[Rfam]
RNA sequence: UAACAAUUCAAUCUUGCUCCCGCUAACCGAGACCUAUGGGAGAAUAAAUUACGUCUCUAAUACCUUCACCUGAGGGUGGUGAAGGAAUAUUUAAUUCA
Numbered sequence: 001u002a003a004c005a006a007u008u009c010a011a012u013c014u015u016g017c018u019c020c021c022g023c024u025a026a027c028c029g030a031g032a033c034c035u036a037u038g039g040g041a042g043a044a045u046a047a048a049u050u051a052c053g054u055c056u057c058u059a060a061u062a063c064c065u066u067c068a069c070c071u072g073a074g075g076g077u078g079g080u081g082a083a084g085g086a087a088u089a090u091u092u093a094a095u096u097c098a
Stems, first nucleotide, its partner, number of pairs: 017042006029057005063085007
This 98-nucleotide RNA sequence belongs to the Rfam family "PhotoRC-II RNA". The base pairs follow the family's consensus structure, which is taken from published work. The sequence is in the family's curated seed alignment.